[Rfam]
RNA: Glutamine-II riboswitch aptamer
RNA sequence: GAACGUUGGCCCCAGUGGGGGCGCAGUUCGAUCUCAAACAGGCAACGGGGUUUGAGA
Numbered sequence: 001g002a003a004c005g006u007u008g009g010c011c012c013c014a015g016u017g018g019g020g021g022c023g024c025a026g027u028u029c030g031a032u033c034u035c036a037a038a039c040a041g042g043c044a045a046c047g048g049g050g051u052u053u054g055a056g057a
Base pairs, nucleotide, nucleotide: 004047005046006045007044008043010021011020012019013018032057033056034055035054036053037052038051039050